c-di-AMP riboswitch aptamer (ydaO/yuaA leader): a 168-nucleotide RNA sequence from Kitasatospora aureofaciens. The source organism's lineage runs through Bacteria, Bacillati, Actinomycetota, Actinomycetes and Kitasatospora. Gene Ontology terms of the family: cyclic-di-AMP binding and regulation of gene expression.
[Rfam]
RNA sequence: ACGGGAAACCGACCAGACCCUGGGCAGGGGCGGGGGAACCAGGUUUGUUGCCGUUCCUCCACGGCUUGGGGUGAAGCCGCCCGAGCGGAAUCGUUUCCGCUUACGGCGGCCGGGCCACCUCCCGGUCCGAACCCGACAGCUCACCUCGCAGGCGUACGGAGAGGGACC
Numbered sequence: 001a002c003g004g005g006a007a008a009c010c011g012a013c014c015a016g017a018c019c020c021u022g023g024g025c026a027g028g029g030g031c032g033g034g035g036g037a038a039c040c041a042g043g044u045u046u047g048u049u050g051c052c053g054u055u056c057c058u059c060c061a062c063g064g065c066u067u068g069g070g071g072u073g074a075a076g077c078c079g080c081c082c083g084a085g086c087g088g089a090a091u092c093g094u095u096u097c098c099g100c101u102u103a104c105g106g107c108g109g110c111c112g113g114g115c116c117a118c119c120u121c122c123c124g125g126u127c128c129g130a131a132c133c134c135g136a137c138a139g140c141u142c143a144c145c146u147c148g149c150a151g152g153c154g155u156a157c158g159g160a161g162a163g164g165g166a167c168c
Stems, first nucleotide, its partner, number of pairs: 013152002018029003030149006040068006069134003077109004112128004